Nucleotides: 129
Stems, first nucleotide, its partner, number of pairs: 002056005015043007024029001067122003071119001089107007
Number, partner (000 for none) and nucleotide at each position: 001000c002056c003055c004054u005053c006052c007000g008000a009000c010000a011000a012000a013000g014000g015043u016042g017041u018040g019039u020038c021037u022000g023000u024029g025000g026000g027000u028000c029024c030000u031000g032000u033000c034000u035000u036000u037021g038020g039019a040018c041017a042016u043015g044000u045000a046000a047000g048000a049000a050000c051000u052006g053005g054004a055003g056002g057000c058000a059000a060000a061000g062000a063000a064000a065000u066000g067122g068121g069120a070000c071119u072000u073000g074000g075000a076000g077000a078000a079000g080000u081000c082000u083000g084000g085000a086000g087000c088000c089107a090106g091105c092104u093103u094102g095101c096000u097000c098000c099000c100000u101095g102094c103093a104092g105091g106090c107089u108000c109000a110000a111000g112000a113000u114000c115000a116000g117000c118000c119071a120069u121068c122067c123000c124000a125000c126000a127000a128000g129000g